[Rfam]
RNA sequence: CUCUUAUCCAGAGAAGGCUGAGGGACUGGCCCAAUGAAGCCCGGCAACCUAGCGCAAAGGAACACGUUUCUUUUGAGCCAAGGUGCUAACUCCUACAGGUAGCGAUACCUGACAGAUGAGAG
Dot-bracket structure: ((((((((....(..(((...(((...[[)))......))))((((.(((.((.......................)).).))))))...(]]..((((((....))))))..)))))))))
Numbered sequence: 001c002u003c004u005u006a007u008c009c010a011g012a013g014a015a016g017g018c019u020g021a022g023g024g025a026c027u028g029g030c031c032c033a034a035u036g037a038a039g040c041c042c043g044g045c046a047a048c049c050u051a052g053c054g055c056a057a058a059g060g061a062a063c064a065c066g067u068u069u070c071u072u073u074u075g076a077g078c079c080a081a082g083g084u085g086c087u088a089a090c091u092c093c094u095a096c097a098g099g100u101a102g103c104g105a106u107a108c109c110u111g112a113c114a115g116a117u118g119a120g121a122g
Stems, first nucleotide, its partner, number of pairs: 001122008013042001016041003022032003028093002043087004048083002050080001052078002091114001096111006